RNA sequence: AUGCACAUUGCUACCCCCGGGCAGACCCGAUGAAAAUGAAGGCAUAGCCCCAUGCGUGUGCCACAUAAAUGCUGUCCAGUGUUGCAAAUCUGGUGGUUUACCCCAUCUGAUUUGUGUCAAAGUUGGCAGCUACAUCU
Numbered sequence: 001a002u003g004c005a006c007a008u009u010g011c012u013a014c015c016c017c018c019g020g021g022c023a024g025a026c027c028c029g030a031u032g033a034a035a036a037u038g039a040a041g042g043c044a045u046a047g048c049c050c051c052a053u054g055c056g057u058g059u060g061c062c063a064c065a066u067a068a069a070u071g072c073u074g075u076c077c078a079g080u081g082u083u084g085c086a087a088a089u090c091u092g093g094u095g096g097u098u099u100a101c102c103c104c105a106u107c108u109g110a111u112u113u114g115u116g117u118c119a120a121a122g123u124u125g126g127c128a129g130c131u132a133c134a135u136c137u
Stems, first nucleotide, its partner, number of pairs: 003061006010055002019050004024045001026042002071130006080119002083116006092106001